This 129-nucleotide RNA from Pedobacter changchengzhani belongs to the Rfam family "Flavo-1 RNA".

RNA sequence: AAAUAAACCCGAUAGGAAUGAAAAUACUUUUAAAAUGGCCUUUGAAAGUUACUAACUCUAAUAGGCGCAUGGCUAGUUAGAGUUAGUAACUUUGCCAUUAAAAGAUUGAAAUGGAAAGCGGGACUUUCG
Numbered sequence: 001a002a003a004u005a006a007a008c009c010c011g012a013u014a015g016g017a018a019u020g021a022a023a024a025u026a027c028u029u030u031u032a033a034a035a036u037g038g039c040c041u042u043u044g045a046a047a048g049u050u051a052c053u054a055a056c057u058c059u060a061a062u063a064g065g066c067g068c069a070u071g072g073c074u075a076g077u078u079a080g081a082g083u084u085a086g087u088a089a090c091u092u093u094g095c096c097a098u099u100a101a102a103a104g105a106u107u108g109a110a111a112u113g114g115a116a117a118g119c120g121g122g123a124c125u126u127u128c129g
Stems, first nucleotide, its partner, number of pairs: 009121003013117001018112002023107003029102005037096003